The record is a 147-nucleotide RNA from Sporomusa termitida, which matches "c-di-AMP riboswitch aptamer (ydaO/yuaA leader)" in Rfam. Pairs were carried over by alignment from the consensus structure. Its family is annotated with cyclic-di-AMP binding and regulation of gene expression in the Gene Ontology.
[Rfam]
Nucleotides: 147
Stems, first nucleotide, its partner, number of pairs: 012130003019027002030125005039055001056111003064076004079105003
Number, partner (000 for none) and nucleotide at each position: 001000a002000u003000a004000g005000a006000u007000a008000u009000a010000a011000u012130g013129c014128c015000g016000a017000a018000u019027c020026u021000u022000u023000a024000c025000a026020g027019g028000u029000a030125c031124g032123g033122g034121g035000g036000a037000a038000c039055c040000a041000a042000g043000a044000c045000a046000g047000u048000a049000g050000a051000c052000a053000c054000a055039g056111g057110g058109g059000a060000u061000a062000a063000u064076c065075c066074g067073u068000u069000g070000a071000g072000a073067a074066c075065g076064g077000a078000a079105g080104g081103g082000c083000g084000u085000a086000u087000u088000c089000u090000a091000a092000u093000u094000c095000u096000c097000u098000c099000u100000u101000u102000u103081c104080c105079c106000u107000a108000u109058c110057c111056c112000g113000a114000c115000a116000g117000c118000u119000a120000a121034c122033c123032c124031c125030g126000g127000a128014g129013g130012c131000u132000a133000a134000c135000a136000u137000u138000g139000c140000g141000a142000g143000g144000u145000u146000g147000u